[Rfam]
RNA sequence: GGGAAUCCGAAACCCACUCACGUACGGCAGGAGCGGGGGACCCAGGUAAGUCGCCGAUCCGUAACCGGAACGGCUUGGGGUGAAGUCGCACGACCGUGCGGCCAGACAUCUCCCGUCUGAACCCGACAGCUCACCUCGCAGGCGCCGGAGAGGAAAUCC
Numbered sequence: 001g002g003g004a005a006u007c008c009g010a011a012a013c014c015c016a017c018u019c020a021c022g023u024a025c026g027g028c029a030g031g032a033g034c035g036g037g038g039g040a041c042c043c044a045g046g047u048a049a050g051u052c053g054c055c056g057a058u059c060c061g062u063a064a065c066c067g068g069a070a071c072g073g074c075u076u077g078g079g080g081u082g083a084a085g086u087c088g089c090a091c092g093a094c095c096g097u098g099c100g101g102c103c104a105g106a107c108a109u110c111u112c113c114c115g116u117c118u119g120a121a122c123c124c125g126a127c128a129g130c131u132c133a134c135c136u137c138g139c140a141g142g143c144g145c146c147g148g149a150g151a152g153g154a155a156a157u158c159c
Stems, first nucleotide, its partner, number of pairs: 007142002013031002033139006043077005078124003086101004104118004

Shown here is a 159-nucleotide RNA sequence from Streptomyces sp. PTY087I2, a member of the family "c-di-AMP riboswitch aptamer (ydaO/yuaA leader)".
A search with the family's covariance model found it, with a score of 63 bits.